[Rfam]
RNA sequence: CCUAUUGAAAUCAGCCCAAGCCUAACAUAUUCUACAUAUGUUCUUUGGAACUAUGGACAUAAACGCGCUCAUAAUAAUCGGAUCGGACCCGGGGGCGGUACCCGGCGACUCCACCAAAAUCCGUUCAUUUGGCGGCUGAGGGGUCGAAAUAGGAUCGACGAACGUGUAAAAGGGUUAGCUUUGUUUCGGCGAGAUACCACCGUAUCGGUUCAAAAUGUACAAUUGCAAAUGACAAUCGUGCUCCAAUGGCGAUGGCCGCGUAAGCGACCGGAACUAUUGAAAACUUAAGCCCUAACGCUUUGCAGCUUUAGGCGGGGUUCGAAGGCACCUGGCAACAGAAGCCUUCACU
Numbered sequence: 001c002c003u004a005u006u007g008a009a010a011u012c013a014g015c016c017c018a019a020g021c022c023u024a025a026c027a028u029a030u031u032c033u034a035c036a037u038a039u040g041u042u043c044u045u046u047g048g049a050a051c052u053a054u055g056g057a058c059a060u061a062a063a064c065g066c067g068c069u070c071a072u073a074a075u076a077a078u079c080g081g082a083u084c085g086g087a088c089c090c091g092g093g094g095g096c097g098g099u100a101c102c103c104g105g106c107g108a109c110u111c112c113a114c115c116a117a118a119a120u121c122c123g124u125u126c127a128u129u130u131g132g133c134g135g136c137u138g139a140g141g142g143g144u145c146g147a148a149a150u151a152g153g154a155u156c157g158a159c160g161a162a163c164g165u166g167u168a169a170a171a172g173g174g175u176u177a178g179c180u181u182u183g184u185u186u187c188g189g190c191g192a193g194a195u196a197c198c199a200c201c202g203u204a205u206c207g208g209u210u211c212a213a214a215a216u217g218u219a220c221a222a223u224u225g226c227a228a229a230u231g232a233c234a235a236u237c238g239u240g241c242u243c244c245a246a247u248g249g250c251g252a253u254g255g256c257c258g259c260g261u262a263a264g265c266g267a268c269c270g271g272a273a274c275u276a277u278u279g280a281a282a283a284c285u286u287a288a289g290c291c292c293u294a295a296c297g298c299u300u301u302g303c304a305g306c307u308u309u310a311g312g313c314g315g316g317g318u319u320c321g322a323a324g325g326c327a328c329c330u331g332g333c334a335a336c337a338g339a340a341g342c343c344u345u346c347a348c349u
Stems, first nucleotide, its partner, number of pairs: 040051004055186005065179002067175004079164002083161003089105005106146007187202003193211002196209003315330004321346006
Alphaproteobacteria transfer-messenger RNA: a 349-nucleotide RNA from Rhodobacteraceae bacterium SB2.
Bacterial tmRNA, also known as 10Sa RNA or SsrA, is named for its dual tRNA and mRNA-like properties. Its role is to liberate the mRNA from a stalled ribosome.
The family's RNA type in Rfam is non-coding RNA gene.
The base pairs follow the family's consensus structure, which is taken from published work.
The source organism's lineage runs through Bacteria, Pseudomonadati, Pseudomonadota, Rhodobacterales and Paracoccaceae.